[Rfam]
RNA sequence: GUACAUGCGAUGAAGAAGGUAUAGUAAAAUACAGAAACUGUUUAUAGAGAACUGAUGGUUGGUGUAAAUCAGUACAGCCUGCUAUUUGAAAUGGGACUUUGGAGCAUAUUCCUUUAAGGAAUCGGUGUCACCGUUAUCGACAGAGUGAUUCAUCAUAAAGAAGAUGAGUAAGAAGGCUGGUACCACGCAUGCAUCAUGCGUCCUUAUU
Numbered sequence: 001g002u003a004c005a006u007g008c009g010a011u012g013a014a015g016a017a018g019g020u021a022u023a024g025u026a027a028a029a030u031a032c033a034g035a036a037a038c039u040g041u042u043u044a045u046a047g048a049g050a051a052c053u054g055a056u057g058g059u060u061g062g063u064g065u066a067a068a069u070c071a072g073u074a075c076a077g078c079c080u081g082c083u084a085u086u087u088g089a090a091a092u093g094g095g096a097c098u099u100u101g102g103a104g105c106a107u108a109u110u111c112c113u114u115u116a117a118g119g120a121a122u123c124g125g126u127g128u129c130a131c132c133g134u135u136a137u138c139g140a141c142a143g144a145g146u147g148a149u150u151c152a153u154c155a156u157a158a159a160g161a162a163g164a165u166g167a168g169u170a171a172g173a174a175g176g177c178u179g180g181u182a183c184c185a186c187g188c189a190u191g192c193a194u195c196a197u198g199c200g201u202c203c204u205u206a207u208u
Stems, first nucleotide, its partner, number of pairs: 007105002015100004027087005042074001051073006108122006123133003148169007174205003185201005
RNA: T-box leader
Organism: Erysipelotrichaceae bacterium 5_2_54FAA